[Rfam]
RNA sequence: CCAAGUCCCGUCGCGAUAACCCCCCCCGGCGCCGGGACUCUCCCGAGCCGGGUCUCGGCGCCCUAACCCCCCCUGGGCGCCGGGGUCCGGCUCCUUU
Numbered sequence: 001c002c003a004a005g006u007c008c009c010g011u012c013g014c015g016a017u018a019a020c021c022c023c024c025c026c027c028g029g030c031g032c033c034g035g036g037a038c039u040c041u042c043c044c045g046a047g048c049c050g051g052g053u054c055u056c057g058g059c060g061c062c063c064u065a066a067c068c069c070c071c072c073c074u075g076g077g078c079g080c081c082g083g084g085g086u087c088c089g090g091c092u093c094c095u096u097u
Stems, first nucleotide, its partner, number of pairs: 005038006012031003045093005051088002054085002056082008